[Rfam]
Rfam assigns this 152-nucleotide sequence from Clostridium sp. DSM 8431 to the family "Group II catalytic intron D1-D4-3". A search with the family's covariance model found it, with a score of 132 bits. Gene Ontology term of the family: Group II intron splicing.

RNA sequence: UCCAUUGUGAGGUGGAAUCUGAAGGAAGUCGGCAGCAAAACUUUGGUCUGAGGUACACAAAUCACAUUUGAGGCUUAUGUCUAUGGGUAAGCUUGCAAAACAAAGUAAAGCCCUAUAACUAUCCGAAAUAGACAGAGUAAAUGUGGCAGAUA
Numbered sequence: 001u002c003c004a005u006u007g008u009g010a011g012g013u014g015g016a017a018u019c020u021g022a023a024g025g026a027a028g029u030c031g032g033c034a035g036c037a038a039a040a041c042u043u044u045g046g047u048c049u050g051a052g053g054u055a056c057a058c059a060a061a062u063c064a065c066a067u068u069u070g071a072g073g074c075u076u077a078u079g080u081c082u083a084u085g086g087g088u089a090a091g092c093u094u095g096c097a098a099a100a101c102a103a104a105g106u107a108a109a110g111c112c113c114u115a116u117a118a119c120u121a122u123c124c125g126a127a128a129u130a131g132a133c134a135g136a137g138u139a140a141a142u143g144u145g146g147c148a149g150a151u152a
Base pairs, nucleotide, nucleotide: 001016002015003014004013005012006011046151047150048149049148050147062146063145064144065143066142067141073138074137075136078134079133080132081131082130083129084128085113086112087111088110091106092105093104094103